[Rfam]
RNA: Molybdenum/Tungsten riboswitch aptamer (Moco RNA motif)
Organism: Desulfosporosinus sp. Sb-LF
RNA sequence: GAAUCGUCAUCGCUCCGAAACUGGAUCCCCUAACGCAUAAGCUAUGGUGACCAGACUGGUGUCUUAAAGGCACUCGGGUAUUAUGGGAAACUGUAAUAUCUCCUGUUGGAAAGGAGUCUGUCGGCAGGUGGAAU
Numbered sequence: 001g002a003a004u005c006g007u008c009a010u011c012g013c014u015c016c017g018a019a020a021c022u023g024g025a026u027c028c029c030c031u032a033a034c035g036c037a038u039a040a041g042c043u044a045u046g047g048u049g050a051c052c053a054g055a056c057u058g059g060u061g062u063c064u065u066a067a068a069g070g071c072a073c074u075c076g077g078g079u080a081u082u083a084u085g086g087g088a089a090a091c092u093g094u095a096a097u098a099u100c101u102c103c104u105g106u107u108g109g110a111a112a113g114g115a116g117u118c119u120g121u122c123g124g125c126a127g128g129u130g131g132a133a134u
Base pairs, nucleotide, nucleotide: 004127006125011120012119013116014115015114016113021054022053023052024051026050027049029047030046035042036041059073060072061071062070063069076101077100078099079098080097081096082095083094084093085092086091102109103108